[Rfam]
Rfam assigns this 93-nucleotide sequence from Canis lupus to the family "mir-8799 microRNA precursor family". Gene Ontology terms of the family: miRNA-mediated post-transcriptional gene silencing and RISC complex. Rfam 15.1 lists 20,638 matches to the family in 5 species.

RNA sequence: GGGGGAUCGCAGGAUCCUGGGCUGUGUCCCCCCAGCGCCCUGGGCUCCGGGGCCUGCGCUGCUGGAAUCGCGCUCCCGGGCAGGUAGCCCGCU
Number, nucleotide and partner (000 for none) at each position: 001g092002g000003g090004g089005g088006a000007u000008c000009g085010c084011a000012g081013g000014a000015u000016c079017c078018u000019g076020g075021g074022c000023u072024g071025u070026g069027u066028c065029c000030c000031c000032c064033c061034a060035g059036c058037g057038c056039c000040c000041u000042g054043g000044g053045c052046u051047c000048c000049g000050g000051g046052g045053c044054c042055u000056g038057c037058g036059c035060u034061g033062c000063u000064g032065g028066a027067a000068u000069c026070g025071c024072g023073c000074u021075c020076c019077c000078g017079g016080g000081c012082a000083g000084g010085u009086a000087g000088c005089c004090c003091g000092c001093u000